[Rfam]
RNA sequence: GGUGCUUUCCGUUAGGUGAGGCUCCUAUACGAACAAUGCUGCUGCUCAGAAACAUCGAGAGAUGCCAAUUGAGUCAACUGCGUCUGCCCAUUAAGGCUUACGCUAAUGCAGCUGAAGCUCGCUUCUAGGCGUAUAGUGCUAAAACUAAACGAUUGGGAUGCUUU
Number, nucleotide and partner (000 for none) at each position: 001g000002g000003u000004g000005c160006u000007u158008u157009c156010c155011g150012u149013u094014a000015g146016g145017u144018g000019a000020g140021g139022c138023u000024c000025c136026u135027a134028u133029a132030c131031g130032a000033a000034c000035a000036a000037u000038g112039c111040u110041g109042c108043u000044g074045c073046u072047c071048a070049g000050a000051a000052a000053c064054a063055u062056c061057g000058a000059g000060a000061g056062a055063u054064g053065c000066c000067a000068a000069u000070u048071g047072a046073g045074u044075c000076a000077a000078c000079u000080g103081c102082g101083u100084c000085u000086g097087c096088c095089c000090a000091u000092u000093a000094a013095g088096g087097c086098u000099u000100a083101c082102g081103c080104u000105a000106a000107u000108g042109c041110a040111g039112c038113u000114g125115a124116a123117g000118c000119u000120c000121g000122c000123u116124u115125c114126u000127a000128g000129g000130c031131g030132u029133a028134u027135a026136g025137u000138g022139c021140u020141a000142a000143a000144a017145c016146u015147a000148a000149a012150c011151g000152a000153u000154u000155g010156g009157g008158a007159u000160g005161c000162u000163u000164u000
M-box riboswitch aptamer (ykoK leader): a 164-nucleotide RNA from Lacticaseibacillus paracasei. Lineage of the source: Bacteria > Bacilli > Lactobacillales > Lactobacillaceae > Lacticaseibacillus paracasei. The family has 159 seed sequences and 1,095 matches in Rfam 15.1. Rfam describes the family as follows. M-box riboswitch, also know as ykoK leader is described as a metaloregulatory RNA that sense divalent metals and function as a genetic control element of genes related to divalent metal transport in bacteria. It was first reported upstream of the B.subtilis ykoK gene and genes with related functions in other bacteria. The base pairs follow the family's consensus structure. It is one of the family's seed sequences.